[Rfam]
RNA sequence: CCUUUCGCGUUGGGGCGUCCAGCGCGAAAACAAAACGGCUGCUCUUAUAGCAAGCCGGAUAGGGCUGAAAGCGUGGUUCGUGCAAAGCACGGCGAUCGCAUGUGGUGCUCGAACCAGUCCGAUGGGAUGUGAGCCCGCCGCCCGAAGGCGCCGUGUGCGCACGAAAAAAGGCCCUUAUCGCCCGAUAAGGGCCUUUUACU
Numbered sequence: 001c002c003u004u005u006c007g008c009g010u011u012g013g014g015g016c017g018u019c020c021a022g023c024g025c026g027a028a029a030a031c032a033a034a035a036c037g038g039c040u041g042c043u044c045u046u047a048u049a050g051c052a053a054g055c056c057g058g059a060u061a062g063g064g065c066u067g068a069a070a071g072c073g074u075g076g077u078u079c080g081u082g083c084a085a086a087g088c089a090c091g092g093c094g095a096u097c098g099c100a101u102g103u104g105g106u107g108c109u110c111g112a113a114c115c116a117g118u119c120c121g122a123u124g125g126g127a128u129g130u131g132a133g134c135c136c137g138c139c140g141c142c143c144g145a146a147g148g149c150g151c152c153g154u155g156u157g158c159g160c161a162c163g164a165a166a167a168a169a170g171g172c173c174c175u176u177a178u179c180g181c182c183c184g185a186u187a188a189g190g191g192c193c194u195u196u197u198a199c200u
Stems, first nucleotide, its partner, number of pairs: 003029006011021003036057004040052004062143004071099003074095001078092005102138003107134004115126001148160004166197014
Notes: Shown here is a 200-nucleotide sequence from Trinickia dinghuensis, a member of the family "Burkholderia sRNA 11". Identified by RNA-seq, RACE and Northern blot. Rfam classes the family as a small RNA. On this family, see Sass et al., Sci Rep 2017: "Identification of small RNAs abundant in Burkholderia cenocepacia biofilms reveal putative regulators with a potential role in carbon and iron metabolism".